[Rfam]
RNA sequence: AUCUUAUCAAGAGAGGUGGAGGGACUGGCCCUGUGAAACCCAGCAACCGGUAAUUCUUUGCGGUUAAAACAAUGCUGAUUUUAAAAUAAAAAAAUCAGUAGUAAUUUCCUAUGCAAAGAUUUAUAGCGGUGCUAAAUCCUGCGGUAGAAACUGAGAGAUAAGAA
Numbered sequence: 001a002u003c004u005u006a007u008c009a010a011g012a013g014a015g016g017u018g019g020a021g022g023g024a025c026u027g028g029c030c031c032u033g034u035g036a037a038a039c040c041c042a043g044c045a046a047c048c049g050g051u052a053a054u055u056c057u058u059u060g061c062g063g064u065u066a067a068a069a070c071a072a073u074g075c076u077g078a079u080u081u082u083a084a085a086a087u088a089a090a091a092a093a094a095u096c097a098g099u100a101g102u103a104a105u106u107u108c109c110u111a112u113g114c115a116a117a118g119a120u121u122u123a124u125a126g127c128g129g130u131g132c133u134a135a136a137u138c139c140u141g142c143g144g145u146a147g148a149a150a151c152u153g154a155g156a157g158a159u160a161a162g163a164a
Stems, first nucleotide, its partner, number of pairs: 002163007013041001015040003021031003025141001027139002042133004047129002050124003137156001142153004
Record summary
Shown here is a 164-nucleotide RNA from Clostridium perfringens, a member of the family "SAM riboswitch aptamer (S box leader)".